[Rfam]
RNA sequence: CAGAGUACCUCAAACAGAGCCACUGGUGAUUCUUGUGUUCACAAGUGCUUCUCUUUGGGGUUGUCUUG
Numbered sequence: 001c002a003g004a005g006u007a008c009c010u011c012a013a014a015c016a017g018a019g020c021c022a023c024u025g026g027u028g029a030u031u032c033u034u035g036u037g038u039u040c041a042c043a044a045g046u047g048c049u050u051c052u053c054u055u056u057g058g059g060g061u062u063g064u065c066u067u068g
Base pairs, nucleotide, nucleotide: 004064007061008060009059010058011057014055016052017051018050019049021047022046023045024044026042027041028040
RNA: miR-430 microRNA precursor family